[Rfam]
RNA sequence: AGCGUCAGCGUGAGCGGAGAGAGAAGAGGGGGAACAAGGAGCUGACGCUAACCACCCU
Number, nucleotide and partner (000 for none) at each position: 001a049002g048003c047004g046005u045006c044007a043008g042009c041010g000011u000012g000013a000014g000015c000016g000017g000018a000019g000020a000021g000022a000023g000024a000025a000026g000027a000028g000029g000030g000031g000032g000033a000034a000035c000036a000037a000038g000039g000040a000041g009042c008043u007044g006045a005046c004047g003048c002049u001050a000051a000052c000053c000054a000055c000056c000057c000058u000

The record is a 58-nucleotide RNA from Jaminaea rosea, which matches "Bacillus-plasmid RNA" in Rfam. The source organism's lineage runs through Eukaryota, Basidiomycota, Ustilaginomycotina, Exobasidiomycetes and Jaminaea. It is annotated as a small RNA.